[Rfam]
Background: The family of this 187-nucleotide RNA from Mauremys mutica is "U2 spliceosomal RNA".

RNA sequence: AUAAUUUUAACAUUAGCUUAAUAAAAAAAAGUUAUCUGUUCUUAUCAGUUUAAUAUCUGAUAUGUCCUUUAUUAGAGGACUGUAUAUUAAAUUGAUUUUUGAAACAGGGGGAUGGAAUAGGAGCGUGCUCUGUCCACACCAUGCGUUGACCUAGUAUUGCAGUGCCUCUAGGAACGGUGCAUCUCCU
Dot-bracket structure: ......((................))................((((((........)))))).(((((((...)))))))...........................((.(..((....((((....)))).))..).))..((((((.(((((.............)))))..)))))).......
Numbered sequence: 001a002u003a004a005u006u007u008u009a010a011c012a013u014u015a016g017c018u019u020a021a022u023a024a025a026a027a028a029a030a031g032u033u034a035u036c037u038g039u040u041c042u043u044a045u046c047a048g049u050u051u052a053a054u055a056u057c058u059g060a061u062a063u064g065u066c067c068u069u070u071a072u073u074a075g076a077g078g079a080c081u082g083u084a085u086a087u088u089a090a091a092u093u094g095a096u097u098u099u100u101g102a103a104a105c106a107g108g109g110g111g112a113u114g115g116a117a118u119a120g121g122a123g124c125g126u127g128c129u130c131u132g133u134c135c136a137c138a139c140c141a142u143g144c145g146u147u148g149a150c151c152u153a154g155u156a157u158u159g160c161a162g163u164g165c166c167u168c169u170a171g172g173a174a175c176g177g178u179g180c181a182u183c184u185c186c187u
Stems, first nucleotide, its partner, number of pairs: 007026002043062006064080007108140002111137001114134002120131004143180006150172005
Rfam's curators write: U2 is a small nuclear RNA (snRNA) component of the spliceosome (involved in pre-mRNA splicing). Complementary binding between U2 snRNA (in an area lying towards the 5' end but 3' to hairpin I) and the branchpoint sequence (BPS) of the intron results the bulging out of an unpaired adenosine, on the BPS, which initiates a nucleophilic attack at the intronic 5' splice site, thus starting the first of two transesterification reactions that mediate splicing. The family's RNA type in Rfam is spliceosomal small nuclear RNA. Clan: U2 clan.